[Rfam]
RNA sequence: ACCCGUUAUCACGAAUCUCAUUACGAGAUAGCAACCUGCAACAACGAGCAAGGUGCUAAAACGAUAAGCCAAUCCUUUGGAAAAAAUGUUGUUUUA
Numbered sequence: 001a002c003c004c005g006u007u008a009u010c011a012c013g014a015a016u017c018u019c020a021u022u023a024c025g026a027g028a029u030a031g032c033a034a035c036c037u038g039c040a041a042c043a044a045c046g047a048g049c050a051a052g053g054u055g056c057u058a059a060a061a062c063g064a065u066a067a068g069c070c071a072a073u074c075c076u077u078u079g080g081a082a083a084a085a086a087u088g089u090u091g092u093u094u095u096a
Stems, first nucleotide, its partner, number of pairs: 006067005015029005030057003035053003038049002044090001069080004
RNA: SAM-I/IV (S-adenosyl methionine) riboswitch aptamer
Organism: Flavobacterium faecale